[Rfam]
RNA: Small nucleolar RNA Z242
RNA sequence: AGGGACCAGGACGAUGGCUGGCCAAAUACAGCUGGUGAUGGAGCCGGAGGCCCGUCGUUUCAGCAGAAAUUGUAGAGCAUGUUGGCCAGUCCGCAGUGAUAAUCUCAUCACAGCAGCAGGUCAAUCUUCAGGGCAGUGUAGCAUGUGUAUGAAUUGUGGUUUAGGUCACA
Numbered sequence: 001a002g003g004g005a006c007c008a009g010g011a012c013g014a015u016g017g018c019u020g021g022c023c024a025a026a027u028a029c030a031g032c033u034g035g036u037g038a039u040g041g042a043g044c045c046g047g048a049g050g051c052c053c054g055u056c057g058u059u060u061c062a063g064c065a066g067a068a069a070u071u072g073u074a075g076a077g078c079a080u081g082u083u084g085g086c087c088a089g090u091c092c093g094c095a096g097u098g099a100u101a102a103u104c105u106c107a108u109c110a111c112a113g114c115a116g117c118a119g120g121u122c123a124a125u126c127u128u129c130a131g132g133g134c135a136g137u138g139u140a141g142c143a144u145g146u147g148u149a150u151g152a153a154u155u156g157u158g159g160u161u162u163a164g165g166u167c168a169c170a
Base pairs, nucleotide, nucleotide: 002169004167005166006165007164008162009161057092060089063086064085071079072078073077
Dot-bracket structure: .(.((((((...............................................(..(..((......(((...))).....))..)..)....................................................................)).)))).).